About this RNA:
The family of this 101-nucleotide RNA sequence from Leishmania braziliensis is "Small nucleolar RNA TBR2". The organism belongs to Leishmania braziliensis, within Eukaryota. Rfam describes the family as follows. TBR4 was one of seventeen snoRNAs identified in Trypanosoma brucei. Together with TBR12, TBR6 and TBR4 it is a part of snoRNA gene cluster that is tandemly repeated. By type it is a C/D-box small nucleolar RNA.

RNA sequence: CGUGUGAUGACAUACAGAGUGUGCGGACACGCCUAUCGCGUAGCUGCCGGCUGUGCGCGCCCGACCAACUACUGUAUUUCAUGGGUGAACAAUCUCUGAUG
Number, nucleotide and partner (000 for none) at each position: 001c087002g086003u085004g000005u084006g000007a082008u081009g080010a000011c000012a077013u076014a075015c074016a073017g072018a000019g000020u000021g069022u068023g000024c000025g000026g000027a000028c000029a000030c000031g000032c000033c000034u000035a000036u000037c057038g056039c055040g054041u053042a052043g051044c050045u049046g000047c000048c000049g045050g044051c043052u042053g041054u040055g039056c038057g037058c000059g000060c000061c000062c000063g000064a000065c000066c000067a000068a022069c021070u000071a000072c017073u016074g015075u014076a013077u012078u000079u000080c009081a008082u007083g000084g005085g003086u002087g001088a000089a000090c000091a000092a000093u000094c000095u000096c000097u000098g000099a000100u000101g000